The family of this 90-nucleotide sequence from Pipistrellus kuhlii is "mir-9261 microRNA precursor family". A search with the family's covariance model found it, with a score of 93 bits. The family's consensus secondary structure was predicted with RNAalifold. Lineage of the source: Eukaryota > Eutheria > Laurasiatheria > Vespertilionidae > Pipistrellus.

RNA sequence: AACAAUUUGUCCCGCGUCCCGCGGCGUUUUAAAAAAGUCCAAAAAUCGGGACUGUUUUAAAACGCCGCGGGACGCGGGACAAAUUGUUAG
Numbered sequence: 001a002a003c004a005a006u007u008u009g010u011c012c013c014g015c016g017u018c019c020c021g022c023g024g025c026g027u028u029u030u031a032a033a034a035a036a037g038u039c040c041a042a043a044a045a046u047c048g049g050g051a052c053u054g055u056u057u058u059a060a061a062a063c064g065c066c067g068c069g070g071g072a073c074g075c076g077g078g079a080c081a082a083a084u085u086g087u088u089a090g
Base pairs, nucleotide, nucleotide: 001088002087003086004085005084006083007082008081009080010079011078012077013076014075015074016073017072018071019070020069021068022067023066024065025064026063027062028061029060030059031058032057033056034055